[Rfam]
Record summary: Shown here is a 129-nucleotide RNA sequence from Thryothorus ludovicianus, a member of the family "U11 spliceosomal RNA". The family's consensus secondary structure is taken from published work. The family is grouped with related families in Rfam's "U1 clan".
RNA sequence: AAAAAGGGCUUCUGCCGUGCGUGGCACGGGGGGGCCUCGCGUCACCCCCGCGGAAUCGACAUCAAGAGAUUUCGGAAGCACAAUUUUUGUGAAGGAGGGCCGCCGGUAACCGCGCGUUCUGGCGCCCCG
Numbered sequence: 001a002a003a004a005a006g007g008g009c010u011u012c013u014g015c016c017g018u019g020c021g022u023g024g025c026a027c028g029g030g031g032g033g034g035c036c037u038c039g040c041g042u043c044a045c046c047c048c049c050g051c052g053g054a055a056u057c058g059a060c061a062u063c064a065a066g067a068g069a070u071u072u073c074g075g076a077a078g079c080a081c082a083a084u085u086u087u088u089g090u091g092a093a094g095g096a097g098g099g100c101c102g103c104c105g106g107u108a109a110c111c112g113c114g115c116g117u118u119c120u121g122g123c124g125c126c127c128c129g
Stems, first nucleotide, its partner, number of pairs: 008079005013026005027050006034043001036041001051074007097127004102123005108118003